[Rfam]
RNA sequence: GGACGGUGACGAUUUUAUCAGAAAGGUCUCGUUCGUCGUAAAUGGCUGUUUUCUAUAGCCUUUGCCGACCAUCCUGAUAUAUCACCACCCAUAUUCCGAGUCC
Numbered sequence: 001g002g003a004c005g006g007u008g009a010c011g012a013u014u015u016u017a018u019c020a021g022a023a024a025g026g027u028c029u030c031g032u033u034c035g036u037c038g039u040a041a042a043u044g045g046c047u048g049u050u051u052u053c054u055a056u057a058g059c060c061u062u063u064g065c066c067g068a069c070c071a072u073c074c075u076g077a078u079a080u081a082u083c084a085c086c087a088c089c090c091a092u093a094u095u096c097c098g099a100g101u102c103c
Stems, first nucleotide, its partner, number of pairs: 001103004048063001050058001
Record summary
The family of this 103-nucleotide RNA from Hibiscus trionum is "Small nucleolar RNA Z43". The source organism's lineage runs through Eukaryota, Spermatophyta, Mesangiospermae, Pentapetalae and Hibiscus. A reference for the family is Chen et al. (2003), "The high diversity of snoRNAs in plants: identification and comparative study of 120 snoRNA genes from Oryza sativa", Nucleic Acids Res.